[Rfam]
RNA: Small nucleolar RNA SNORA57
RNA sequence: CCUCCUCGUCUUGGCGGGGUCUGUGUGCGGUCCCAGGCUCCGUUAUAUGUGGAGCAGAGGGUUAGGGGCGCCCGCCCCCUGGCGGCAAGUCUUCGGUGCCGGUGGUUUCCAGUCCGCCGGUUCUAUCCUCAAGCCCUGGGACACGG
Numbered sequence: 001c002c003u004c005c006u007c008g009u010c011u012u013g014g015c016g017g018g019g020u021c022u023g024u025g026u027g028c029g030g031u032c033c034c035a036g037g038c039u040c041c042g043u044u045a046u047a048u049g050u051g052g053a054g055c056a057g058a059g060g061g062u063u064a065g066g067g068g069c070g071c072c073c074g075c076c077c078c079c080u081g082g083c084g085g086c087a088a089g090u091c092u093u094c095g096g097u098g099c100c101g102g103u104g105g106u107u108u109c110c111a112g113u114c115c116g117c118c119g120g121u122u123c124u125a126u127c128c129u130c131a132a133g134c135c136c137u138g139g140g141a142c143a144c145g146g
Base pairs, nucleotide, nucleotide: 002054003053004052005051015042016041017040018039019038020037022035023034025032080138081137082136084134099120100119101118102117103116104115105114